[Rfam]
Nucleotides: 144
Base pairs, nucleotide, nucleotide: 011129012128013127014126018039019038020037021036022035023034040124041123042122043121044120045119050061051060062109063108064107070085071084072083073082088103089102090101091100
Number, partner (000 for none) and nucleotide at each position: 001000g002000g003000a004000a005000g006000g007000u008000c009000a010000c011129c012128g013127c014126c015000g016000a017000g018039u019038c020037g021036a022035c023034c024000u025000u026000u027000u028000c029000g030000g031000g032000g033000u034023g035022g036021u037020c038019g039018a040124g041123c042122c043121g044120g045119g046000g047000a048000c049000c050061c051060a052000c053000g054000g055000u056000u057000a058000u059000c060051u061050g062109g063108g064107g065000u066000g067000a068000a069000u070085c071084c072083u073082u074000c075000g076000u077000u078000u079000g080000u081000g082073g083072a084071g085070g086000g087000a088103g089102g090101g091100c092000a093000c094000u095000u096000c097000c098000u099000u100091g101090c102089c103088c104000g105000a106000a107064c108063c109062c110000g111000u112000c113000a114000g115000c116000u117000a118000a119045c120044u121043c122042g123041g124040u125000a126014g127013g128012c129011g130000g131000c132000a133000a134000g135000g136000g137000a138000a139000g140000a141000a142000a143000g144000g
This 144-nucleotide RNA from Nakamurella aerolata belongs to the Rfam family "c-di-AMP riboswitch aptamer (ydaO/yuaA leader)". Its family is annotated with cyclic-di-AMP binding and regulation of gene expression in the Gene Ontology. The organism belongs to Nakamurella, within Bacteria. From the family's description: This family represents a conserved RNA structure found upstream of the ydaO and yuaA genes in Bacillus subtilis and related genes in other bacteria.